The record is a 148-nucleotide RNA from Streptacidiphilus fuscans, which matches "SAM riboswitch aptamer (S box leader)" in Rfam.
[Rfam]
RNA sequence: CGCUCAUCCAGAGGGACUGAGGGAACGGCCCGUUGAAGUCCCGGCAACCCCCCUACCAGGUUGCCCGCAGCCCACACGCGCUGCGGCCCCCGGUCGGGAAGGUGCCAAUUCCGGCCCGUGGCGAGACGCGCCCCGGGGAAGAUGAGGA
Number, nucleotide and partner (000 for none) at each position: 001c000002g000003c146004u145005c144006a143007u142008c141009c000010a000011g000012a000013g042014g041015g040016a039017c038018u000019g000020a000021g031022g030023g029024a000025a000026c113027g112028g111029c023030c022031c021032g000033u000034u000035g000036a000037a000038g017039u016040c015041c014042c013043g106044g105045c104046a103047a000048c102049c101050c098051c097052c096053c000054u000055a000056c000057c000058a000059g000060g000061u000062u000063g000064c000065c000066c000067g000068c000069a000070g000071c000072c000073c000074a000075c000076a000077c000078g000079c000080g000081c000082u000083g000084c000085g000086g000087c000088c000089c000090c000091c000092g000093g000094u000095c000096g052097g051098g050099a000100a000101g049102g048103u046104g045105c044106c043107a000108a000109u000110u140111c028112c027113g026114g000115c137116c136117c135118g134119u000120g132121g131122c130123g129124a000125g000126a000127c000128g000129c123130g122131c121132c120133c000134c118135g117136g116137g115138g000139a000140a110141g008142a007143u006144g005145a004146g003147g000148a000

The match comes from Rfam's covariance-model search (72 bits).